[Rfam]
RNA sequence: GAGUCGUCUUCGUAUGCGAGUGUUCGGGCGUCAAACCCGUGCGCGCAAUGAAAGUGAACGCGGGUGGGAGCCCCCCUAGCGGGGGCGCACCGCCGACCGAUCCUGAUGUUCUCGGAUGGAUUUGAGUAGGAGCAUACGGGGCCGGACCCGAAAGAAGGUGAACUAUGCCUGUGUAGGGUGAAGCCAGAGGAAACUCUGGUGGAGGCUCGCAGCGGUUCUGACGUGCAAAUCGAUCGUCAAACAUGGGCAUGGGGGCGAAAGACUAAUCGAACCUUCUAGUAGCUGGUU
Numbered sequence: 001g002a003g004u005c006g007u008c009u010u011c012g013u014a015u016g017c018g019a020g021u022g023u024u025c026g027g028g029c030g031u032c033a034a035a036c037c038c039g040u041g042c043g044c045g046c047a048a049u050g051a052a053a054g055u056g057a058a059c060g061c062g063g064g065u066g067g068g069a070g071c072c073c074c075c076c077u078a079g080c081g082g083g084g085g086c087g088c089a090c091c092g093c094c095g096a097c098c099g100a101u102c103c104u105g106a107u108g109u110u111c112u113c114g115g116a117u118g119g120a121u122u123u124g125a126g127u128a129g130g131a132g133c134a135u136a137c138g139g140g141g142c143c144g145g146a147c148c149c150g151a152a153a154g155a156a157g158g159u160g161a162a163c164u165a166u167g168c169c170u171g172u173g174u175a176g177g178g179u180g181a182a183g184c185c186a187g188a189g190g191a192a193a194c195u196c197u198g199g200u201g202g203a204g205g206c207u208c209g210c211a212g213c214g215g216u217u218c219u220g221a222c223g224u225g226c227a228a229a230u231c232g233a234u235c236g237u238c239a240a241a242c243a244u245g246g247g248c249a250u251g252g253g254g255g256c257g258a259a260a261g262a263c264u265a266a267u268c269g270a271a272c273c274u275u276c277u278a279g280u281a282g283c284u285g286g287u288u
Base pairs, nucleotide, nucleotide: 005144006143008141009140010139011138012137013136014135015134016133017132020044021043022042025039026038027037028036048055049054063094064093065092066091067090070086071085072084096127097126098124099123100122101120102119103118107114108113147286148285150283154276155275156274157273158272159271163252164251165250166249167248168247169246170245171244172243173242174240176208177207178206179205183200184199185198186197187196188195189194212237213236214235215234217233218232220231221230254264255263